[Rfam]
RNA sequence: UAAAAAGCAAUGAAGAGACGAGUAGAUAAUUUUAUUCUUUCAGUGAAUUAGCGUUAGUGAGAAGCUAGUAGACCCUGAAUUAUCGAAUAACACUUUUCCGCUGUGCUGCUAGCCUAAAUUAAAGUAAGCUACGCCGUCAUCGGUACGUUAUCAAGCCGAAGAGCAUGAUUGUGUUCUAUUAAGCUGGUCUAUUUUUAGACAAUUUAGGUGGUACCGCGGAAAAAAGCCUUUCGUCCUGAGA
Numbered sequence: 001u002a003a004a005a006a007g008c009a010a011u012g013a014a015g016a017g018a019c020g021a022g023u024a025g026a027u028a029a030u031u032u033u034a035u036u037c038u039u040u041c042a043g044u045g046a047a048u049u050a051g052c053g054u055u056a057g058u059g060a061g062a063a064g065c066u067a068g069u070a071g072a073c074c075c076u077g078a079a080u081u082a083u084c085g086a087a088u089a090a091c092a093c094u095u096u097u098c099c100g101c102u103g104u105g106c107u108g109c110u111a112g113c114c115u116a117a118a119u120u121a122a123a124g125u126a127a128g129c130u131a132c133g134c135c136g137u138c139a140u141c142g143g144u145a146c147g148u149u150a151u152c153a154a155g156c157c158g159a160a161g162a163g164c165a166u167g168a169u170u171g172u173g174u175u176c177u178a179u180u181a182a183g184c185u186g187g188u189c190u191a192u193u194u195u196u197a198g199a200c201a202a203u204u205u206a207g208g209u210g211g212u213a214c215c216g217c218g219g220a221a222a223a224a225a226g227c228c229u230u231u232c233g234u235c236c237u238g239a240g241a
Stems, first nucleotide, its partner, number of pairs: 007101002015096001016094002025084006036072003047069006104133002108129003135147003187200005205238004216234005
RNA: T-box leader
Organism: Lactobacillus johnsonii